[Rfam]
RNA sequence: CUCGUUGACCUGAUGCUCAGGUGGAAGUAAGGCCCCUCGGCCCGAAGCAACGCACC
Numbered sequence: 001c002u003c004g005u006u007g008a009c010c011u012g013a014u015g016c017u018c019a020g021g022u023g024g025a026a027g028u029a030a031g032g033c034c035c036c037u038c039g040g041c042c043c044g045a046a047g048c049a050a051c052g053c054a055c056c
Stems, first nucleotide, its partner, number of pairs: 003052005009021005024053001031042004